[Rfam]
Rfam assigns this 212-nucleotide sequence from Sandarakinorhabdus glacialis to the family "permuted transfer-messenger RNA". The base pairs follow the family's consensus structure, which is taken from published work. The literature on the family includes a 1996 paper in RNA by Williams and Bartel, "Phylogenetic analysis of tmRNA secondary structure". Lineage of the source: Bacteria > Pseudomonadati > Alphaproteobacteria > Sphingosinicellaceae > Sandarakinorhabdus. Bacterial tmRNA, also known as 10Sa RNA or SsrA, is named for its dual tRNA and mRNA-like properties. Its role is to liberate the mRNA from a stalled ribosome. To accomplish this part of the tmRNA is used as a reading frame that ends in a translation stop signal.
RNA sequence: GGCGAUAAAGUGUGUCGUGAAAUAGAUGCAGCGGACCCGGGGGCAGUACCCGGCGACUCCACCAUUUUCCCCGGUUGUUGCGGGCGGUAUGGGGUCGAACUAGGAUCGACGUGUGUUCAAAGACGAUAUUUUUGCCCGGCCUGAAUGAGCCGUUAAACCGUUUAAAACACCUAAAUGCCAACGACAACGAGGCAUUCGCAAUCGCAGCGUAA
Numbered sequence: 001g002g003c004g005a006u007a008a009a010g011u012g013u014g015u016c017g018u019g020a021a022a023u024a025g026a027u028g029c030a031g032c033g034g035a036c037c038c039g040g041g042g043g044c045a046g047u048a049c050c051c052g053g054c055g056a057c058u059c060c061a062c063c064a065u066u067u068u069c070c071c072c073g074g075u076u077g078u079u080g081c082g083g084g085c086g087g088u089a090u091g092g093g094g095u096c097g098a099a100c101u102a103g104g105a106u107c108g109a110c111g112u113g114u115g116u117u118c119a120a121a122g123a124c125g126a127u128a129u130u131u132u133u134g135c136c137c138g139g140c141c142u143g144a145a146u147g148a149g150c151c152g153u154u155a156a157a158c159c160g161u162u163u164a165a166a167a168c169a170c171c172u173a174a175a176u177g178c179c180a181a182c183g184a185c186a187a188c189g190a191g192g193c194a195u196u197c198g199c200a201a202u203c204g205c206a207g208c209g210u211a212a
Stems, first nucleotide, its partner, number of pairs: 001136005015126004027115003031112003037053005054097007137152004